[Rfam]
RNA sequence: UCAUGAAUGUUUUACUGCACACAUUACUUAAACGGGUUCGAGAAAGGCAUAUUAGAA
Numbered sequence: 001u002c003a004u005g006a007a008u009g010u011u012u013u014a015c016u017g018c019a020c021a022c023a024u025u026a027c028u029u030a031a032a033c034g035g036g037u038u039c040g041a042g043a044a045a046g047g048c049a050u051a052u053u054a055g056a057a
Base pairs, nucleotide, nucleotide: 019037020036022034024032025031